Rfam assigns this 82-nucleotide RNA from Rhodanobacter sp. OK091 to the family "ZMP/ZTP riboswitch aptamer (pfl RNA motif)".
[Rfam]
RNA sequence: ACCCGUUCGCGCAACUGGCGCCUCGGAUGGAUCACCAUCGGGAAACGCGGACGACCACGAGCCGCGCGCCUGGGCACCCCCU
Numbered sequence: 001a002c003c004c005g006u007u008c009g010c011g012c013a014a015c016u017g018g019c020g021c022c023u024c025g026g027a028u029g030g031a032u033c034a035c036c037a038u039c040g041g042g043a044a045a046c047g048c049g050g051a052c053g054a055c056c057a058c059g060a061g062c063c064g065c066g067c068g069c070c071u072g073g074g075c076a077c078c079c080c081c082u
Stems, first nucleotide, its partner, number of pairs: 004053008015042002017070005027038004059077001061075003